[Rfam]
RNA sequence: AAAAAGUGAAUCUAGGUUCCCAUUUCUACGUUAGUAGAAAGUUUGGUCCAAGCGAUUCACAUAUUCAUUUUUGAAAAGAAGUGGAUAUGACACCGAAGGGAUAAAAGCCCAGGCGGG
Number, nucleotide and partner (000 for none) at each position: 001a000002a000003a000004a000005a000006g000007u059008g058009a057010a056011u055012c054013u000014a000015g049016g048017u000018u000019c000020c046021c045022a043023u040024u039025u038026c037027u036028a035029c000030g000031u000032u000033a000034g000035u028036a027037g026038a025039a024040a023041g000042u000043u022044u000045g021046g020047u000048c016049c015050a000051a000052g000053c000054g012055a011056u010057u009058c008059a007060c089061a088062u087063a086064u085065u084066c083067a082068u081069u080070u079071u078072u000073g000074a000075a000076a000077a000078g071079a070080a069081g068082u067083g066084g065085a064086u063087a062088u061089g060090a000091c112092a000093c115094c000095g000096a000097a000098g110099g109100g108101a000102u000103a000104a000105a000106a000107g000108c100109c099110c098111a000112g091113g000114c000115g093116g000117g000
The family of this 117-nucleotide sequence from Priestia megaterium is "Guanidine-I riboswitch aptamer". For this family Rfam cites "An uncommon [K(+)(Mg(2+))2] metal ion triad imparts stability and selectivity to the Guanidine-I riboswitch" (Trachman RJ 3rd and Ferre-D'Amare, RNA, 2021). The match comes from Rfam's covariance-model search (63 bits). From the family's description: This family represents a conserved RNA structure found upstream of the ykkC and yxkD genes in Bacillus subtilis and related genes in other bacteria.